[Rfam]
RNA: Burkholderia sRNA Bp1_Cand871_SIPHT
Nucleotides: 227
Stems, first nucleotide, its partner, number of pairs: 005167003019126010030115002033112006039076003044071005051064002054061001079092005095106003128150005171196002174193007202220008
Number, partner (000 for none) and nucleotide at each position: 001000u002000c003000g004000c005167c006166c007165a008000c009000a010000a011000u012000c013000u014000c015000u016000u017000c018000a019126a020125a021124c022123g023122g024121u025120u026119u027118c028117a029000a030115c031114a032000c033112g034111g035110a036109u037108g038107u039076g040075u041074u042000g043000g044071g045070u046069g047068c048067g049000g050000u051064g052063u053000g054061u055000a056000a057000g058000g059000a060000a061054a062000g063052a064051c065000c066000a067048c068047g069046c070045g071044c072000c073000u074041g075040a076039u077000a078000g079092u080091c081090g082089g083088c084000a085000a086000u087000c088083g089082c090081c091080g092079a093000a094000a095106c096105c097104c098000u099000c100000g101000a102000c103000u104097g105096g106095g107038a108037c109036a110035u111034c112033u113000u114031u115030g116000c117028u118027g119026g120025g121024g122023u123022c124021g125020u126019u127000c128150u129149u130148c131147g132146g133000u134000a135000c136000a137000c138000a139000a140000g141000c142000g143000g144000u145000a146132u147131c148130g149129a150128a151000a152000u153000c154000g155000u156000u157000c158000c159000c160000a161000c162000c163000u164000u165007u166006g167005g168000u169000c170000u171196c172195c173000u174193c175192g176191c177190g178189c179188u180187a181000a182000c183000c184000c185000c186000g187180u188179a189178g190177c191176g192175u193174g194000u195172g196171g197000u198000u199000u200000u201000u202220a203219g204218c205217g206216g207215g208214c209213u210000c211000c212000a213209g214208g215207c216206c217205c218204g219203c220202u221000u222000u223000u224000u225000u226000u227000u